[Rfam]
This 228-nucleotide RNA from Turnera subulata belongs to the Rfam family "RNase MRP". Its Rfam clan is "RNaseP clan". By type it is a ribozyme.
RNA sequence: AAGUCAGAAGAAGAUGUGACUGGGCUGCUUAUCUUUGGCCCAGGAAAGUCCCCGGGUCAAGUUCUGCAGAGAUGCGGCCCCGGAAACGGGGUAAACCGAGCGGGAAUUUGACACCACAGGCUGAGACAUGUGUGGAGCCUCAGAAUUCCCGCCGGUCAUGUUGGUCAACUUGACAGAUAUUCACAUGGCCCGUUGGGCUAACUGAAUGGGGCUUAUGUUCUUAUGGCU
Numbered sequence: 001a002a003g004u005c006a007g008a009a010g011a012a013g014a015u016g017u018g019a020c021u022g023g024g025c026u027g028c029u030u031a032u033c034u035u036u037g038g039c040c041c042a043g044g045a046a047a048g049u050c051c052c053c054g055g056g057u058c059a060a061g062u063u064c065u066g067c068a069g070a071g072a073u074g075c076g077g078c079c080c081c082g083g084a085a086a087c088g089g090g091g092u093a094a095a096c097c098g099a100g101c102g103g104g105a106a107u108u109u110g111a112c113a114c115c116a117c118a119g120g121c122u123g124a125g126a127c128a129u130g131u132g133u134g135g136a137g138c139c140u141c142a143g144a145a146u147u148c149c150c151g152c153c154g155g156u157c158a159u160g161u162u163g164g165u166c167a168a169c170u171u172g173a174c175a176g177a178u179a180u181u182c183a184c185a186u187g188g189c190c191c192g193u194u195g196g197g198c199u200a201a202c203u204g205a206a207u208g209g210g211g212c213u214u215a216u217g218u219u220c221u222u223a224u225g226g227c228u
Stems, first nucleotide, its partner, number of pairs: 002228005008222004014186006022041006046214003050211004065076004077092006094156001096154001100152010118140004128133001188198004